[Rfam]
RNA sequence: GAGAACUAACAAUCUAAUAGGUAGAAUGACGGAGUAACGCCCUAAAAUGCCUACACUGAUACUCCGAUUGGCAAUAAAUAUUAGACUAAUUUAUUGUCAAAAGCUCGGUGAAGUCGGCAGAGAGUAGCCGUAAAUAGCUAUAUAGUUAUACGAAACCUGUUUAGAGGUAAAUGGUGCUACCUAUAUGCCGGGUGUCGAAUAC
Numbered sequence: 001g002a003g004a005a006c007u008a009a010c011a012a013u014c015u016a017a018u019a020g021g022u023a024g025a026a027u028g029a030c031g032g033a034g035u036a037a038c039g040c041c042c043u044a045a046a047a048u049g050c051c052u053a054c055a056c057u058g059a060u061a062c063u064c065c066g067a068u069u070g071g072c073a074a075u076a077a078a079u080a081u082u083a084g085a086c087u088a089a090u091u092u093a094u095u096g097u098c099a100a101a102a103g104c105u106c107g108g109u110g111a112a113g114u115c116g117g118c119a120g121a122g123a124g125u126a127g128c129c130g131u132a133a134a135u136a137g138c139u140a141u142a143u144a145g146u147u148a149u150a151c152g153a154a155a156c157c158u159g160u161u162u163a164g165a166g167g168u169a170a171a172u173g174g175u176g177c178u179a180c181c182u183a184u185a186u187g188c189c190g191g192g193u194g195u196c197g198a199a200u201a202c
Stems, first nucleotide, its partner, number of pairs: 018053006031043002034040001054194004064108004068100012115190005124180005129152003136147002157174007